[Rfam]
RNA sequence: CCUGCUGUUGACCCAGUACUCAGUGUAGGGUCUGUGUGACAAUAAUAUACAGCUACAUCUGAUUACUGGGUCAGUAGUGGCAUCA
Numbered sequence: 001c002c003u004g005c006u007g008u009u010g011a012c013c014c015a016g017u018a019c020u021c022a023g024u025g026u027a028g029g030g031u032c033u034g035u036g037u038g039a040c041a042a043u044a045a046u047a048u049a050c051a052g053c054u055a056c057a058u059c060u061g062a063u064u065a066c067u068g069g070g071u072c073a074g075u076a077g078u079g080g081c082a083u084c085a
Stems, first nucleotide, its partner, number of pairs: 013069006020062003023058006032052004

This 85-nucleotide sequence from Scleropages formosus belongs to the Rfam family "mir-221 microRNA precursor family". The family has 72 seed sequences and 1,797 matches in Rfam 15.1. Pairs were carried over by alignment from the consensus structure, which was predicted with RNAalifold. Lineage of the source: Eukaryota > Metazoa > Gnathostomata > Osteoglossiformes > Scleropages. Gene Ontology terms of the family: RISC complex and miRNA-mediated post-transcriptional gene silencing.